[Rfam]
RNA: mir-196 microRNA precursor family
Organism: Pardalotus punctatus
RNA sequence: UCUGUGAGUUAGGUAGUUUCAUGUUGUUGGGCUCCUUUCAAACGCAAGGACAUCAAACUACCUGAUUUACUCC
Numbered sequence: 001u002c003u004g005u006g007a008g009u010u011a012g013g014u015a016g017u018u019u020c021a022u023g024u025u026g027u028u029g030g031g032c033u034c035c036u037u038u039c040a041a042a043c044g045c046a047a048g049g050a051c052a053u054c055a056a057a058c059u060a061c062c063u064g065a066u067u068u069a070c071u072c073c
Stems, first nucleotide, its partner, number of pairs: 004070016022052004027047003031043001